[Rfam]
RNA sequence: AGCACCGUGGUUCGUAACCAUCCCACGAAAAAAAACUAAGGAGAA
Numbered sequence: 001a002g003c004a005c006c007g008u009g010g011u012u013c014g015u016a017a018c019c020a021u022c023c024c025a026c027g028a029a030a031a032a033a034a035a036c037u038a039a040g041g042a043g044a045a
Stems, first nucleotide, its partner, number of pairs: 006027005015038002
RNA: PreQ1 (pre queuosine) riboswitch aptamer